[Rfam]
RNA sequence: GAGAAGACACUGGAGGCAGCGGUUCAUCGAUCUUUUCCUGAAGAUUUUUUUGUUUUACACGAACAACACGAACCGAUCGAUAAACCUCUGCAUCCAGUGCUUCCCU
Numbered sequence: 001g002a003g004a005a006g007a008c009a010c011u012g013g014a015g016g017c018a019g020c021g022g023u024u025c026a027u028c029g030a031u032c033u034u035u036u037c038c039u040g041a042a043g044a045u046u047u048u049u050u051u052g053u054u055u056u057a058c059a060c061g062a063a064c065a066a067c068a069c070g071a072a073c074c075g076a077u078c079g080a081u082a083a084a085c086c087u088c089u090g091c092a093u094c095c096a097g098u099g100c101u102u103c104c105c106u
Base pairs, nucleotide, nucleotide: 012095013094014093017090018089019088021086022085023084024083026081027080028079029078030077031076032075035072036071037070
RNA: MIR162_1 microRNA precursor family
Organism: Populus trichocarpa